[Rfam]
RNA sequence: GCGGAUGGCUGGAUGAUCGCACGUUUAUGCGUGAGGAAAGUCCGGACUUCAUAAAGCAAAGGCGGCGGGUAAUGCCCGCCCGGGGCAACCCGAGGGAAAGCGCAACAGAGAACAGACCGCCUAGUUUGACUGGGUAAGGGUGAAACGGUGGGGUAAGAGCCCACCACGGUGGUGGUAACAUCACUGGUAUGGCAAGCCCCGCCUGAAGCAAAACCAAGUAGGAACCGCGUGGCCCGUAAGGGUCGGGGUCGCUUUAGCCCCAGCAGGCUCGGGUGGUUGCAAGAGCGUUUCGGCAACGGAACGCCCAGAUGAAUGGUCAUCGAGGGGUGUAAACCCUGAACAAAAUCCGGCUUAUAGGCCAUCCGCAUAU
Numbered sequence: 001g002c003g004g005a006u007g008g009c010u011g012g013a014u015g016a017u018c019g020c021a022c023g024u025u026u027a028u029g030c031g032u033g034a035g036g037a038a039a040g041u042c043c044g045g046a047c048u049u050c051a052u053a054a055a056g057c058a059a060a061g062g063c064g065g066c067g068g069g070u071a072a073u074g075c076c077c078g079c080c081c082g083g084g085g086c087a088a089c090c091c092g093a094g095g096g097a098a099a100g101c102g103c104a105a106c107a108g109a110g111a112a113c114a115g116a117c118c119g120c121c122u123a124g125u126u127u128g129a130c131u132g133g134g135u136a137a138g139g140g141u142g143a144a145a146c147g148g149u150g151g152g153g154u155a156a157g158a159g160c161c162c163a164c165c166a167c168g169g170u171g172g173u174g175g176u177a178a179c180a181u182c183a184c185u186g187g188u189a190u191g192g193c194a195a196g197c198c199c200c201g202c203c204u205g206a207a208g209c210a211a212a213a214c215c216a217a218g219u220a221g222g223a224a225c226c227g228c229g230u231g232g233c234c235c236g237u238a239a240g241g242g243u244c245g246g247g248g249u250c251g252c253u254u255u256a257g258c259c260c261c262a263g264c265a266g267g268c269u270c271g272g273g274u275g276g277u278u279g280c281a282a283g284a285g286c287g288u289u290u291c292g293g294c295a296a297c298g299g300a301a302c303g304c305c306c307a308g309a310u311g312a313a314u315g316g317u318c319a320u321c322g323a324g325g326g327g328u329g330u331a332a333a334c335c336c337u338g339a340a341c342a343a344a345a346u347c348c349g350g351c352u353u354a355u356a357g358g359c360c361a362u363c364c365g366c367a368u369a370u
Stems, first nucleotide, its partner, number of pairs: 001366010011355001012321007020033005038353003042350005047208004055254002060204005065079005080094001081092004095199002100197002102193002117139002119135007147165006166188001167186008212278004222270002225267002245261005285304008
Shown here is a 370-nucleotide sequence from Amylibacter sp. SFDW26, a member of the family "Bacterial RNase P class A". The base pairs follow the family's consensus structure, which is taken from published work. The organism belongs to Amylibacter, within Bacteria. By type it is a ribozyme.